[Rfam]
RNA sequence: UUGCGUGGGCCCAACCCCGGGCUGCUCCGACGAGAUUGCAGUGGGGAUGCCUGGCCCCAAUGCCCGCGCGAGAGCUAUCCUCGGCCGUCCUGUGUUGCAGAUCUGAUCGAUCCGGUUCUCCGGGUUCAUGGCUUGUCUGUGUCAAUUGGGCGGCUACAUCU
Number, nucleotide and partner (000 for none) at each position: 001u000002u000003g069004c068005g067006u066007g065008g064009g063010c062011c000012c000013a000014a000015c000016c000017c000018c000019g057020g056021g055022c054023u053024g050025c049026u047027c046028c045029g000030a000031c000032g000033a000034g000035a000036u000037u000038g000039c000040a000041g000042u000043g000044g000045g028046g027047a026048u000049g025050c024051c000052u000053g023054g022055c021056c020057c019058c000059a000060a000061u000062g010063c009064c008065c007066g006067c005068g004069c003070g000071a000072g000073a000074g000075c000076u000077a000078u000079c000080c000081u000082c000083g000084g154085c153086c152087g151088u150089c149090c148091u000092g000093u144094g143095u000096u141097g140098c139099a138100g137101a136102u000103c000104u000105g000106a000107u000108c000109g000110a000111u000112c000113c000114g000115g000116u000117u000118c000119u000120c000121c000122g000123g000124g000125u000126u000127c000128a000129u000130g000131g000132c000133u000134u000135g000136u101137c100138u099139g098140u097141g096142u000143c094144a093145a000146u000147u000148g090149g089150g088151c087152g086153g085154c084155u000156a000157c000158a000159u000160c000161u000
Annotation:
A member of the RNA family "small nucleolar RNA snoR134" from Colocasia esculenta, 161 nucleotides long. On this family, see Chen and Wu, Nucleic Acids Res 2009: "Mining small RNA sequencing data: a new approach to identify small nucleolar RNAs in Arabidopsis".